This 68-nucleotide RNA from Dipodomys ordii belongs to the Rfam family "Small nucleolar RNA SNORD82". It is annotated as a C/D-box small nucleolar RNA. From the family's description: snoRNA U82 or Z25 is found in both humans and mice. Its family is annotated with RNA processing and nucleolus in the Gene Ontology. Lineage of the source: Eukaryota > Metazoa > Glires > Rodentia > Dipodomys. A search with the family's covariance model found it, with a score of 45 bits. The family's consensus secondary structure was predicted with PFOLD.
RNA sequence: AUCACAAAUUAUGAAUGACAAAUGACUUAAUGCUGAAAUCUGACAUUGCAUCAUGAUAUGCCAUGUGU
Number, nucleotide and partner (000 for none) at each position: 001a000002u000003c067004a066005c065006a064007a000008a000009u000010u000011a000012u000013g000014a000015a000016u000017g000018a000019c000020a000021a000022a000023u000024g000025a000026c000027u000028u000029a000030a000031u000032g000033c000034u000035g000036a000037a000038a000039u000040c000041u000042g000043a000044c000045a000046u000047u000048g000049c000050a000051u000052c000053a000054u000055g000056a000057u000058a000059u000060g000061c000062c000063a000064u006065g005066u004067g003068u000